[Rfam]
Nucleotides: 079
Base pairs, nucleotide, nucleotide: 001079002078003077004076006074008072009071016070017069019066022064023063024062026060027059028058032053033052034051035050036049037048038047039046
Number, partner (000 for none) and nucleotide at each position: 001079a002078g003077u004076a005000a006074g007000a008072c009071c010000a011000a012000g013000c014000c015000u016070g017069g018000c019066g020000c021000a022064c023063c024062a025000u026060u027059u028058c029000c030000u031000u032053g033052u034051c035050u036049g037048u038047a039046g040000c041000c042000a043000u044000g045000u046039c047038u048037a049036u050035g051034g052033g053032c054000u055000c056000u057000u058028g059027a060026g061000u062024u063023g064022g065000a066019c067000a068000c069017c070016u071009g072008g073000g074006c075000c076004u077003g078002c079001u